[Rfam]
RNA: MIR168 microRNA precursor family
Organism: Zingiber officinale
RNA sequence: GUCGCGGCCGCUUCUGGUUCGCUUGGUGCAGGUCGGGAACGCGUCGCCGUCUGCCGGUGGGCGAGCUGCUUCCCGCCUUGCAUCAACUGAAUCGGAAGCGAGAGCGACG
Numbered sequence: 001g002u003c004g005c006g007g008c009c010g011c012u013u014c015u016g017g018u019u020c021g022c023u024u025g026g027u028g029c030a031g032g033u034c035g036g037g038a039a040c041g042c043g044u045c046g047c048c049g050u051c052u053g054c055c056g057g058u059g060g061g062c063g064a065g066c067u068g069c070u071u072c073c074c075g076c077c078u079u080g081c082a083u084c085a086a087c088u089g090a091a092u093c094g095g096a097a098g099c100g101a102g103a104g105c106g107a108c109g
Base pairs, nucleotide, nucleotide: 013096014095017092018091019090020089023086024085025084026083027082028081029080030079031078032077034075035074036073037072038071